[Rfam]
RNA sequence: GGCGUCUUUCUUCGCGCGGGAGCUCGACCCGCCACAGCGGUGAUCUGCCGGUUCAUCGACGAGAACCGGGCCAGGUUCGGGGUCGAGCCGAUCUGCCGCGUGCUGACCGAGCACGGCUGCAAGAUCGCCCCG
Numbered sequence: 001g002g003c004g005u006c007u008u009u010c011u012u013c014g015c016g017c018g019g020g021a022g023c024u025c026g027a028c029c030c031g032c033c034a035c036a037g038c039g040g041u042g043a044u045c046u047g048c049c050g051g052u053u054c055a056u057c058g059a060c061g062a063g064a065a066c067c068g069g070g071c072c073a074g075g076u077u078c079g080g081g082g083u084c085g086a087g088c089c090g091a092u093c094u095g096c097c098g099c100g101u102g103c104u105g106a107c108c109g110a111g112c113a114c115g116g117c118u119g120c121a122a123g124a125u126c127g128c129c130c131c132g
Stems, first nucleotide, its partner, number of pairs: 016032005078132005089127002092124003095120002098117001
RNA: ALIL pseudoknot
Organism: Georgenia soli